[Rfam]
RNA sequence: GCCCUCCAGUUCCCUUUUCCAUCAGAUCUAAACACAGGUCUGGGUGGUCAUAAAAGGAUGAAAAGUAACUUUGAAACUGACCGCAGUGCUUUGUAGCACACAGGUUGGCUUCAGGAAAGA
Numbered sequence: 001g002c003c004c005u006c007c008a009g010u011u012c013c014c015u016u017u018u019c020c021a022u023c024a025g026a027u028c029u030a031a032a033c034a035c036a037g038g039u040c041u042g043g044g045u046g047g048u049c050a051u052a053a054a055a056g057g058a059u060g061a062a063a064a065g066u067a068a069c070u071u072u073g074a075a076a077c078u079g080a081c082c083g084c085a086g087u088g089c090u091u092u093g094u095a096g097c098a099c100a101c102a103g104g105u106u107g108g109c110u111u112c113a114g115g116a117a118a119g120a
Stems, first nucleotide, its partner, number of pairs: 003060001005058003019047005025040004077108006092098002

Shown here is a 120-nucleotide RNA from Orycteropus afer, a member of the family "Small nucleolar RNA SNORA61". NCBI's taxonomy places the organism under Eukaryota, Eumetazoa, Gnathostomata, Eutheria, Orycteropus afer. About the family: ACA61 is a member of the H/ACA class of snoRNA that guide the sites of modification of uridines to pseudouridines.